[Rfam]
RNA sequence: AGCUGAUGCACACGGCGGCCUUCCUCCCAUUGCCGCCGCGCCGGCUGUUCCCCUCUGGAGGUUCAAUGACCUUCAUAUCUUAUGGGCCGCGGUUUUCCGUCGGCCUUUUUUC
Numbered sequence: 001a002g003c004u005g006a007u008g009c010a011c012a013c014g015g016c017g018g019c020c021u022u023c024c025u026c027c028c029a030u031u032g033c034c035g036c037c038g039c040g041c042c043g044g045c046u047g048u049u050c051c052c053c054u055c056u057g058g059a060g061g062u063u064c065a066a067u068g069a070c071c072u073u074c075a076u077a078u079c080u081u082a083u084g085g086g087c088c089g090c091g092g093u094u095u096u097c098c099g100u101c102g103g104c105c106u107u108u109u110u111u112c
Base pairs, nucleotide, nucleotide: 001046002045003044004043005042007040008039009038015036016035017034018033056075057074058073059072060071061070062069084106085105086104087103088102089100090099091098092097
The record is a 112-nucleotide RNA sequence from Ensifer sp. M14, which matches "Alphaproteobacterial ar15" in Rfam. The match comes from Rfam's covariance-model search (98 bits). Its Rfam clan is "suhB sRNA clan". Its family is annotated with protein binding in the Gene Ontology. On this family, see del Val et al., Mol Microbiol 2007: "Identification of differentially expressed small non-coding RNAs in the legume endosymbiont Sinorhizobium meliloti by comparative genomics". By type it is a small RNA. Pairs were carried over by alignment from the consensus structure.